This 185-nucleotide sequence belongs to the Rfam family "FMN riboswitch aptamer (RFN element)".
RNA sequence: GCUUAUUCUCAGGGCGGGGUGCAAGUCCCCACCGGCGGUAAACCACAGAGUAAAUUGGUGAAACACUCUUUCAUCAUCGUGGAAGCCCGCGAGCGCUUGAGUUUCUCUUUAGGGAGAGCUCAAGGUCAGCAGAUCCGGUGUAAUUCCGGGGCCGACGGUUAUAGUCCGGAUGGGAGAGAUUAACG
Numbered sequence: 001g002c003u004u005a006u007u008c009u010c011a012g013g014g015c016g017g018g019g020u021g022c023a024a025g026u027c028c029c030c031a032c033c034g035g036c037g038g039u040a041a042a043c044c045a046c047a048g049a050g051u052a053a054a055u056u057g058g059u060g061a062a063a064c065a066c067u068c069u070u071u072c073a074u075c076a077u078c079g080u081g082g083a084a085g086c087c088c089g090c091g092a093g094c095g096c097u098u099g100a101g102u103u104u105c106u107c108u109u110u111a112g113g114g115a116g117a118g119c120u121c122a123a124g125g126u127c128a129g130c131a132g133a134u135c136c137g138g139u140g141u142a143a144u145u146c147c148g149g150g151g152c153c154g155a156c157g158g159u160u161a162u163a164g165u166c167c168g169g170a171u172g173g174g175a176g177a178g179a180u181u182a183a184c185g
Stems, first nucleotide, its partner, number of pairs: 003183003007179004017029003031165002033154002035090004093130002134150005156168003